[Rfam]
RNA sequence: GGGAUAUGAUGAGUGGUCAAUACUCGCUAUAAUUUUGCGAGAAGGAUGUCCAGGCUCAGCCUGGUUACGACAAUUUGGGCGUCCUCAAUUUUACCAAUCUGAUCCU
Numbered sequence: 001g002g003g004a005u006a007u008g009a010u011g012a013g014u015g016g017u018c019a020a021u022a023c024u025c026g027c028u029a030u031a032a033u034u035u036u037g038c039g040a041g042a043a044g045g046a047u048g049u050c051c052a053g054g055c056u057c058a059g060c061c062u063g064g065u066u067a068c069g070a071c072a073a074u075u076u077g078g079g080c081g082u083c084c085u086c087a088a089u090u091u092u093a094c095c096a097a098u099c100u101g102a103u104c105c106u
Stems, first nucleotide, its partner, number of pairs: 001106004014096004023041005043085008062077002064074002
RNA: Small nucleolar RNA Z279/snoR105/snoR108
Organism: Solanum commersonii